RNA sequence: UUUCCUGUUUGACCACCACAUUCUCUCCAAAUCACAGACAUUAGUGGCUCUGCUUGUGGGGUAGAUUAGUCUUGUCAUGGUCUCAUAGAGGACUGAACUGUGCCAUCACCUCACAUGGAGUGGUUCCAGCCAGAGGGUA
Numbered sequence: 001u002u003u004c005c006u007g008u009u010u011g012a013c014c015a016c017c018a019c020a021u022u023c024u025c026u027c028c029a030a031a032u033c034a035c036a037g038a039c040a041u042u043a044g045u046g047g048c049u050c051u052g053c054u055u056g057u058g059g060g061g062u063a064g065a066u067u068a069g070u071c072u073u074g075u076c077a078u079g080g081u082c083u084c085a086u087a088g089a090g091g092a093c094u095g096a097a098c099u100g101u102g103c104c105a106u107c108a109c110c111u112c113a114c115a116u117g118g119a120g121u122g123g124u125u126c127c128a129g130c131c132a133g134a135g136g137g138u139a
Stems, first nucleotide, its partner, number of pairs: 004060004016047004074126001075123003088112004

The family of this 139-nucleotide sequence from Erinaceus europaeus is "Small nucleolar RNA SNORA29". The source organism's lineage runs through Eukaryota, Theria, Boreoeutheria, Laurasiatheria and Erinaceus. About the family: ACA29 is a member of the H/ACA class of snoRNA that guide the sites of modification of uridines to pseudouridines. Rfam links the family to the GO terms nucleolus and RNA processing. Rfam 15.1 lists 960 matches to the family in 621 species. Clan: SNORA20 clan. Rfam classes the family as an H/ACA-box small nucleolar RNA. A search with the family's covariance model found it, with a score of 72 bits. For this family Rfam cites "RNomics: an experimental approach that identifies 201 candidates for novel, small, non-messenger RNAs in mouse" (Huttenhofer et al., EMBO J, 2001).